[Rfam]
RNA sequence: CCUGCCCCUUGAGGCGUUGCAGGCGUGGCUGUUGUGUCACACCUGCGUCACUAGGCGGCAGAGAGAAUCGAGGCUAUGUCUACGCUCAGUGUUCUGGCCUGUGAACGCUUGAAUGAUUAGUAGCCUGACACU
Number, nucleotide and partner (000 for none) at each position: 001c000002c061003u060004g059005c058006c057007c055008c054009u053010u000011g051012a000013g049014g048015c047016g000017u000018u000019g046020c045021a044022g043023g000024c000025g040026u039027g038028g037029c036030u000031g000032u000033u000034g000035u000036g029037u028038c027039a026040c025041a000042c000043c022044u021045g020046c019047g015048u014049c013050a000051c011052u000053a009054g008055g007056c000057g006058g005059c004060a003061g002062a000063g000064a000065g000066a000067a000068u000069c000070g000071a126072g125073g124074c123075u122076a121077u120078g000079u000080c000081u000082a000083c115084g114085c000086u112087c111088a110089g109090u107091g106092u105093u104094c103095u000096g000097g000098c000099c000100u000101g000102u000103g094104a093105a092106c091107g090108c000109u089110u088111g087112a086113a000114u084115g083116a000117u000118u000119a000120g077121u076122a075123g074124c073125c072126u071127g000128a000129c000130a000131c000132u000
Small nucleolar RNA SNORA17: a 132-nucleotide RNA sequence from Fukomys damarensis. NCBI's taxonomy places the organism under Eukaryota, Dipnotetrapodomorpha, Tetrapoda, Bathyergidae, Fukomys. Rfam classes the family as an H/ACA-box small nucleolar RNA. A reference for the family is Ofengand and Bakin (1997), "Mapping to nucleotide resolution of pseudouridine residues in large subunit ribosomal RNAs from representative eukaryotes, prokaryotes, archaebacteria, mitochondria and chloroplasts", J Mol Biol. The match comes from Rfam's covariance-model search (130 bits). About the family: snoRNA ACA 17 belongs to the H/ACA family of snoRNAs and is predicted to guide pseudouridylation of the 28S rRNA at positions U4659 and U4598. It shares the same host gene together with ACA43. NB This family has a high threshold value to exclude a large number of closely related sequences that do not appear to have conserved H and ACA boxes, and may be pseudogenes. The base pairs follow the family's consensus structure, which was predicted with RNAalifold.